Rfam assigns this 80-nucleotide sequence from Paenibacillus cellulosilyticus to the family "ZMP/ZTP riboswitch aptamer (pfl RNA motif)".
Pairs were carried over by alignment from the consensus structure, which is taken from published work.
The source organism's lineage runs through Bacteria, Bacillati, Bacilli, Caryophanales and Paenibacillus.
RNA sequence: UUGGAUGUGUGUGACUGGCGAAAACGUGGUGAACCACGAGGGAGCACGCAUGGUAACGGCCGUUCGCCUGGGCAAAGUAU
Number, nucleotide and partner (000 for none) at each position: 001u000002u000003g000004g000005a051006u050007g049008u048009g047010u046011g045012u044013g000014a000015c041016u040017g068018g067019c066020g065021a064022a000023a000024a000025c000026g037027u036028g035029g034030u000031g000032a000033a000034c029035c028036a027037c026038g000039a000040g016041g015042g000043a000044g012045c011046a010047c009048g008049c007050a006051u005052g000053g000054u000055a000056a000057c000058g000059g073060c072061c071062g000063u000064u021065c020066g019067c018068c017069u000070g000071g061072g060073c059074a000075a000076a000077g000078u000079a000080u000